[Rfam]
RNA sequence: AAAAUUUUUCAAAAGAAAGAAAAAUCUGUUCUUAUCAGUUUAAUAUCUGAUACGUCCCCCAUCCGGGGACUACAUAUUAAAUGGAUUUUUAGAUCACGGAGCUGGAGCCGGGGCUUGCUCCGUCCACUCCAUGCAUCGGCCUGGUAUUGCAGUGUCUCCAGGAACGGUGUGCUUUCC
Numbered sequence: 001a002a003a004a005u006u007u008u009u010c011a012a013a014a015g016a017a018a019g020a021a022a023a024a025u026c027u028g029u030u031c032u033u034a035u036c037a038g039u040u041u042a043a044u045a046u047c048u049g050a051u052a053c054g055u056c057c058c059c060c061a062u063c064c065g066g067g068g069a070c071u072a073c074a075u076a077u078u079a080a081a082u083g084g085a086u087u088u089u090u091a092g093a094u095c096a097c098g099g100a101g102c103u104g105g106a107g108c109c110g111g112g113g114c115u116u117g118c119u120c121c122g123u124c125c126a127c128u129c130c131a132u133g134c135a136u137c138g139g140c141c142u143g144g145u146a147u148u149g150c151a152g153u154g155u156c157u158c159c160a161g162g163a164a165c166g167g168u169g170u171g172c173u174u175u176c177c
Base pairs, nucleotide, nucleotide: 001008002007033052034051035050036049037048038047054070055069056068057067058066059065098130099129100128101127104124105123110121111120112119113118133170134169135168136167137166138165140162141161142160143159144158
RNA: U2 spliceosomal RNA
Organism: Carassius auratus